Background
Rfam assigns this 73-nucleotide sequence from Salmo trutta to the family "Small nucleolar RNA SNORD69". snoRNA HBII-210 belongs to the C/D family of snoRNAs. It is the human orthologue of the mouse MBII-210 and is predicted to guide the 2'O-ribose methylation of large 28S rRNA on residue G4464. The organism belongs to Salmo, within Eukaryota.
RNA sequence: UGUAUGAAGCGUGAUGAAGUUGAUCUGACGAAACCGUGGAGUCUAUAUUCAAUCCAACACUGAGCUUCAUACA
Numbered sequence: 001u002g003u004a005u006g007a008a009g010c011g012u013g014a015u016g017a018a019g020u021u022g023a024u025c026u027g028a029c030g031a032a033a034c035c036g037u038g039g040a041g042u043c044u045a046u047a048u049u050c051a052a053u054c055c056a057a058c059a060c061u062g063a064g065c066u067u068c069a070u071a072c073a
Stems, first nucleotide, its partner, number of pairs: 001073010